[Rfam]
RNA sequence: AGAGUGUUACGAUGAUGGAAGUUUACUUCCAAGUCUAGCUCGAAACUUCCCCUGAAUGUUUUCAGGGGAGG
Dot-bracket structure: .((((.....(((...(((((....)))))..)))..))))....(((((((((........)))))))))
Numbered sequence: 001a002g003a004g005u006g007u008u009a010c011g012a013u014g015a016u017g018g019a020a021g022u023u024u025a026c027u028u029c030c031a032a033g034u035c036u037a038g039c040u041c042g043a044a045a046c047u048u049c050c051c052c053u054g055a056a057u058g059u060u061u062u063c064a065g066g067g068g069a070g071g
Stems, first nucleotide, its partner, number of pairs: 002041004011035003017030005046071009
Background: The family of this 71-nucleotide sequence from Carnobacterium divergens is "L17 ribosomal protein downstream element". The family's RNA type in Rfam is cis-regulatory element. The match comes from Rfam's covariance-model search (55 bits). Lineage of the source: Bacteria > Bacillota > Carnobacteriaceae > Carnobacterium > Carnobacterium divergens.